This 508-nucleotide RNA sequence from Saccharothrix violaceirubra belongs to the Rfam family "Saccharopolyspora sRNA 350". The source organism's lineage runs through Bacteria, Actinomycetota, Actinomycetes, Pseudonocardiales and Saccharothrix. A reference for the family is Liu et al. (2013), "Prediction and characterization of small non-coding RNAs related to secondary metabolites in Saccharopolyspora erythraea", PLoS One. The family has 2 seed sequences and 1,170 matches in Rfam 15.1.
RNA sequence: UUGACGGUGUACUCCCACUCGCCCUGCGGGCCGGCGAGCACCUGGUCGCCGAAGUAGCCGCCGGUGGCCAGGACGUCGAGCACGGUCUGGUCGCCGUACUCGCCCGCGCCGAUCUUGUCGACCUUGCCGUGCGCGAUGAGGAAGACCUCGUUCUUCGGUCGGCCCUCCUCGACGAUCACCUGGCCGACCUCGUACUCGCGCUGCCGGAAGCGGCGGGCGAGCGCGGUCAACGCCUCCACGUCGUCGAAGUCGCGCAGCAGCGGGAGUUCGACGAGUUCCUGGGGUACGACGCUGACCUCCGCGCCGACGUUGGUGAAACUCAGCCGGCCGUCGCCGAUCGCGUAGCUGAGCCGGCGGUUGACGCGGUACGCGCCGCCCGACGCCUCGACCCAGGGCAGGACCUUGAGCAGCCACCGGGAGGUGAUGCCCUGCAUCUGGGGGACGGACUUGGUCGUCGUCGCCAGAUUCCGGGCCGCCGCCGUACCGAGGCUCAGCCUCGGCUGCUCGU
Number, nucleotide and partner (000 for none) at each position: 001u000002u000003g000004a000005c000006g390007g389008u388009g000010u000011a385012c000013u000014c382015c000016c000017a000018c000019u327020c000021g000022c000023c000024c000025u323026g000027c000028g320029g319030g000031c000032c315033g000034g000035c313036g000037a311038g310039c309040a000041c000042c306043u000044g000045g305046u000047c303048g302049c301050c000051g299052a298053a000054g233055u232056a000057g000058c000059c000060g227061c226062c225063g224064g000065u111066g110067g109068c108069c000070a000071g000072g000073a000074c000075g103076u000077c102078g101079a100080g099081c000082a097083c096084g095085g094086u093087c000088u000089g000090g000091u000092c000093g086094c085095c084096g083097u082098a000099c080100u079101c078102g077103c075104c000105c000106g000107c000108g068109c067110c066111g065112a000113u000114c000115u000116u000117g222118u221119c000120g000121a000122c217123c216124u000125u000126g000127c212128c000129g000130u209131g000132c206133g204134c203135g202136a000137u000138g199139a000140g197141g000142a000143a196144g195145a000146c000147c000148u000149c192150g191151u000152u000153c000154u000155u187156c186157g185158g184159u183160c182161g000162g177163c000164c000165c174166u000167c000168c000169u000170c000171g000172a000173c000174g165175a000176u000177c162178a000179c000180c000181u000182g160183g159184c158185c157186g156187a155188c000189c000190u000191c150192g149193u000194a000195c144196u143197c140198g000199c138200g000201c000202u135203g134204c133205c000206g132207g000208a000209a130210g000211c000212g127213g000214c000215g000216g123217g122218c000219g000220a000221g118222c117223g000224c063225g062226g061227u060228c000229a000230a000231c000232g055233c054234c000235u295236c294237c000238a000239c000240g290241u289242c288243g287244u286245c000246g000247a000248a000249g000250u282251c281252g280253c000254g278255c000256a277257g276258c275259a000260g000261c270262g269263g000264g000265a000266g000267u000268u000269c262270g261271a000272c000273g000274a000275g258276u257277u256278c254279c000280u252281g251282g250283g000284g000285u000286a244287c243288g242289a241290c240291g000292c000293u000294g236295a235296c000297c000298u052299c051300c000301g049302c048303g047304c000305c045306g042307a000308c000309g039310u038311u037312g000313g035314u000315g032316a000317a000318a000319c029320u028321c000322a000323g025324c000325c000326g000327g019328c000329c342330g341331u340332c000333g000334c000335c000336g000337a000338u000339c000340g331341c330342g329343u000344a000345g000346c000347u000348g000349a000350g000351c379352c000353g377354g376355c375356g374357g373358u000359u000360g000361a000362c370363g369364c000365g000366g000367u000368a000369c363370g362371c000372g000373c357374c356375g355376c354377c353378c000379g351380a000381c000382g014383c000384c000385u011386c000387g000388a008389c007390c006391c431392a430393g429394g428395g427396c426397a425398g000399g000400a422401c421402c000403u418404u417405g000406a000407g415408c000409a000410g000411c000412c000413a000414c000415c407416g000417g404418g403419a000420g000421g401422u400423g000424a000425u397426g396427c395428c394429c393430u392431g391432c000433a000434u000435c000436u000437g476438g000439g474440g473441g000442a000443c470444g469445g468446a467447c000448u464449u463450g462451g461452u460453c000454g000455u000456c000457g000458u000459c000460g452461c451462c450463a449464g448465a000466u000467u446468c445469c444470g443471g000472g000473c440474c439475g000476c437477c507478g506479c000480c503481g502482u000483a000484c500485c499486g498487a497488g496489g000490c000491u000492c000493a000494g000495c000496c488497u487498c486499g485500g484501c000502u481503g480504c000505u000506c478507g477508u000